[Rfam]
RNA sequence: GGAUUGAUGAUGACUCCCUACAAAUGCAUUCCUUGGAAGUCUGAACAAAAUGAGUGACAAUCCCUACCGUUGUCCUCAUCGGAACUGAGGUCC
Number, nucleotide and partner (000 for none) at each position: 001g093002g092003a091004u090005u089006g000007a000008u000009g000010a000011u000012g000013a000014c000015u000016c000017c000018c000019u000020a000021c000022a000023a000024a000025u000026g000027c056028a055029u054030u053031c052032c000033u048034u047035g046036g000037a000038a000039g000040u000041c000042u000043g000044a000045a000046c035047a034048a033049a000050a000051u000052g031053a030054g029055u028056g027057a000058c000059a000060a000061u000062c000063c000064c000065u000066a000067c000068c000069g000070u000071u000072g000073u000074c000075c000076u000077c000078a000079u000080c000081g000082g000083a000084a000085c000086u000087g000088a000089g005090g004091u003092c002093c001
RNA: Small nucleolar RNA SNORD116